The record is an 84-nucleotide RNA from Candidatus Accumulibacter sp. BA-94, which matches "Betaproteobacteria toxic small RNA" in Rfam. It scores 57 bits against the family's covariance model. The family has 51 seed sequences and 951 matches in Rfam 15.1.
[Rfam]
RNA sequence: UGUCUCCUCCAUCCUCCUCCUUUGGUGUGGAUUUAGCGCGGCUAUGUGGAUUUAGCGCGGCUCCCACGAGCCGCGCUUUUUUUU
Numbered sequence: 001u002g003u004c005u006c007c008u009c010c011a012u013c014c015u016c017c018u019c020c021u022u023u024g025g026u027g028u029g030g031a032u033u034u035a036g037c038g039c040g041g042c043u044a045u046g047u048g049g050a051u052u053u054a055g056c057g058c059g060g061c062u063c064c065c066a067c068g069a070g071c072c073g074c075g076c077u078u079u080u081u082u083u084u
Stems, first nucleotide, its partner, number of pairs: 008031005013025002035077008